[Rfam]
RNA sequence: UAAUAUCAGGGUUCCAAACUUAAAAGCGUUAGAGCGUGUUUGCAUGGUAACGCUUUUAAACUUGGAACCCACAAACAUGAAGAAGUAGCGAUUUACGCAGUAAAUCAGCGGAUUCUGAAUGUUUGUAGGAUUGCGGGAGCAGCUAAACUGCGUAGCAAUCCGCAGAUAUUA
Numbered sequence: 001u002a003a004u005a006u007c008a009g010g011g012u013u014c015c016a017a018a019c020u021u022a023a024a025a026g027c028g029u030u031a032g033a034g035c036g037u038g039u040u041u042g043c044a045u046g047g048u049a050a051c052g053c054u055u056u057u058a059a060a061c062u063u064g065g066a067a068c069c070c071a072c073a074a075a076c077a078u079g080a081a082g083a084a085g086u087a088g089c090g091a092u093u094u095a096c097g098c099a100g101u102a103a104a105u106c107a108g109c110g111g112a113u114u115c116u117g118a119a120u121g122u123u124u125g126u127a128g129g130a131u132u133g134c135g136g137g138a139g140c141a142g143c144u145a146a147a148c149u150g151c152g153u154a155g156c157a158a159u160c161c162g163c164a165g166a167u168a169u170u171a
Base pairs, nucleotide, nucleotide: 001171002170003169004168005167006166007165011068012067013066014065017062020059021058022057023056024055025054026053027052028051029050030049031048035046036045037044038043071126072125073124074123075122076121077120078119081116082115083114084113088109089108090106091105092104093103094102095101096100128161129160130159131158132157133156134155139151140150141149142148
Rfam assigns this 171-nucleotide RNA sequence from Ruminococcus sp. AF31-8BH to the family "Clostridiales-1 RNA". Rfam classes the family as a small RNA. The match comes from Rfam's covariance-model search (112 bits). The organism belongs to Ruminococcus, within Bacteria. The family has 194 seed sequences and 1,172 matches in Rfam 15.1.